The family of this 144-nucleotide RNA sequence from Nasonia vitripennis is "U4atac minor spliceosomal RNA". Pairs were carried over by alignment from the consensus structure, which is taken from published work. Rfam's curators write: U4atac is an essential component of the minor U12-type spliceosome complex which is required for removal of the rarer class of eukaryotic introns (AT-AC, U12-type). The family's RNA type in Rfam is spliceosomal small nuclear RNA. The source organism's lineage runs through Eukaryota, Altocrustacea, Allotriocarida, Chalcidoidea and Nasonia. The match comes from Rfam's covariance-model search (88 bits). For this family Rfam cites "Evolutionary conservation of minor U12-type spliceosome between plants and humans" (Lorkovic et al., RNA, 2005).

RNA sequence: UACAUCCUUGUCUAGAGGAGCAUAAGUAUUCAAUGAACGUAUAGUGAGGGUACUGAUGCUGACACUAGUUAAAAAUUUUAACUGCAUCCGCGAGUAAGGUAUUUUAACGAAUAUCCACUCGUUUGCGAUGCAAUUUUUGAAAGC
Numbered sequence: 001u002a003c004a005u006c007c008u009u010g011u012c013u014a015g016a017g018g019a020g021c022a023u024a025a026g027u028a029u030u031c032a033a034u035g036a037a038c039g040u041a042u043a044g045u046g047a048g049g050g051u052a053c054u055g056a057u058g059c060u061g062a063c064a065c066u067a068g069u070u071a072a073a074a075a076u077u078u079u080a081a082c083u084g085c086a087u088c089c090g091c092g093a094g095u096a097a098g099g100u101a102u103u104u105u106a107a108c109g110a111a112u113a114u115c116c117a118c119u120c121g122u123u124u125g126c127g128a129u130g131c132a133a134u135u136u137u138u139g140a141a142a143g144c
Stems, first nucleotide, its partner, number of pairs: 005019005020059004025054007037045002084131005089125001090122006